[Rfam]
RNA sequence: CCCGGGACUUCGUCCCGGGCUGUUAUAAAUCGUCCCUUUGGGACG
Number, nucleotide and partner (000 for none) at each position: 001c019002c018003c017004g016005g015006g014007a013008c012009u000010u000011c000012g008013u007014c006015c005016c004017g003018g002019g001020c000021u000022g000023u000024u000025a000026u000027a000028a000029a000030u000031c000032g044033u043034c042035c041036c040037u000038u000039u000040g036041g035042g034043a033044c032045g000
Notes:
A member of the RNA family "Acido-Lenti-1 RNA" from Neoluteolibacter luteus, 45 nucleotides long. The base pairs follow the family's consensus structure, which is taken from published work. The family has 87 seed sequences and 2,607 matches in Rfam 15.1.